[Rfam]
RNA: Small nucleolar RNA SNORA13
Organism: Kryptolebias marmoratus
RNA sequence: UGCCUUUAUGUGUUGCCCGUUCAUUGUCUCUGUAAUGAUCGGGGUGUCAGAUGAGGCACACAUUGACUUUUGUGAUUGUUUGUAAAACGAGAUUAUAAAUUGCUCGUUUACGUAAAACAACUGCAAAGACACAU
Numbered sequence: 001u002g003c004c005u006u007u008a009u010g011u012g013u014u015g016c017c018c019g020u021u022c023a024u025u026g027u028c029u030c031u032g033u034a035a036u037g038a039u040c041g042g043g044g045u046g047u048c049a050g051a052u053g054a055g056g057c058a059c060a061c062a063u064u065g066a067c068u069u070u071u072g073u074g075a076u077u078g079u080u081u082g083u084a085a086a087a088c089g090a091g092a093u094u095a096u097a098a099a100u101u102g103c104u105c106g107u108u109u110a111c112g113u114a115a116a117a118c119a120a121c122u123g124c125a126a127a128g129a130c131a132c133a134u
Stems, first nucleotide, its partner, number of pairs: 002057005011049002014046004018041002021038005069127004074121001076120004082113002086109002088106002090101002